[Rfam]
RNA sequence: ACCAUCCUUUCCUUGGGGUUGUGCUACUGUCCAAUGAGUGCAUAAUGAGGGCAGUACUGCCAAUGCCUACACAACAUGCCUGCAUCAACUAGGGCUUUGCUUUACCUUGGUGCAAUUAUUUAAAAA
Numbered sequence: 001a002c003c004a005u006c007c008u009u010u011c012c013u014u015g016g017g018g019u020u021g022u023g024c025u026a027c028u029g030u031c032c033a034a035u036g037a038g039u040g041c042a043u044a045a046u047g048a049g050g051g052c053a054g055u056a057c058u059g060c061c062a063a064u065g066c067c068u069a070c071a072c073a074a075c076a077u078g079c080c081u082g083c084a085u086c087a088a089c090u091a092g093g094g095c096u097u098u099g100c101u102u103u104a105c106c107u108u109g110g111u112g113c114a115a116u117u118a119u120u121u122a123a124a125a126a
Stems, first nucleotide, its partner, number of pairs: 006018004021060003026055007038046002082113006090104006
Rfam assigns this 126-nucleotide RNA from Rhinopithecus roxellana to the family "U4atac minor spliceosomal RNA". Its family is annotated with U4atac snRNP, mRNA 5'-splice site recognition and spliceosomal tri-snRNP complex assembly in the Gene Ontology. A reference for the family is Lorkovic et al. (2005), "Evolutionary conservation of minor U12-type spliceosome between plants and humans", RNA. The source organism's lineage runs through Eukaryota, Gnathostomata, Teleostomi, Dipnotetrapodomorpha and Rhinopithecus. It is annotated as a spliceosomal small nuclear RNA. Rfam 15.1 lists 1,648 matches to the family in 818 species. From the family's description: U4atac is an essential component of the minor U12-type spliceosome complex which is required for removal of the rarer class of eukaryotic introns (AT-AC, U12-type). The family's consensus secondary structure is taken from published work.